[Rfam]
RNA sequence: AUCGUUCAUCUCAUUUGAGACGGAAGUAGGUAAUGGUUUACCGAAGGAACGCGUU
Number, nucleotide and partner (000 for none) at each position: 001a000002u000003c051004g050005u049006u048007c047008a000009u020010c019011u018012c017013a000014u000015u000016u000017g012018a011019g010020a009021c000022g000023g052024a000025a000026g000027u000028a000029g042030g041031u040032a039033a038034u000035g000036g000037u000038u033039u032040a031041c030042c029043g000044a000045a000046g000047g007048a006049a005050c004051g003052c023053g000054u000055u000
RNA: Glutamine riboswitch aptamer (glnA leader)